[Rfam]
RNA sequence: CCCAGAGGUAUUGAUGGGUGUGAAAACAACACCGCUUCGGCAGUGAUUACCCUGUUAUUGCACCAACCCACGCAGAUGCGUGGGUUUUUUUU
Numbered sequence: 001c002c003c004a005g006a007g008g009u010a011u012u013g014a015u016g017g018g019u020g021u022g023a024a025a026a027c028a029a030c031a032c033c034g035c036u037u038c039g040g041c042a043g044u045g046a047u048u049a050c051c052c053u054g055u056u057a058u059u060g061c062a063c064c065a066a067c068c069c070a071c072g073c074a075g076a077u078g079c080g081u082g083g084g085u086u087u088u089u090u091u092u
Base pairs, nucleotide, nucleotide: 017064018063019062020061021054028047030045031044032043066085067084068083069082070081071080072079073078
This 92-nucleotide RNA sequence from Pantoea sp. Eser belongs to the Rfam family "OmrA-B family". The match comes from Rfam's covariance-model search (72 bits). Rfam 15.1 lists 153 matches to the family in 128 species. The source organism's lineage runs through Bacteria, Pseudomonadati, Enterobacterales, Erwiniaceae and Pantoea.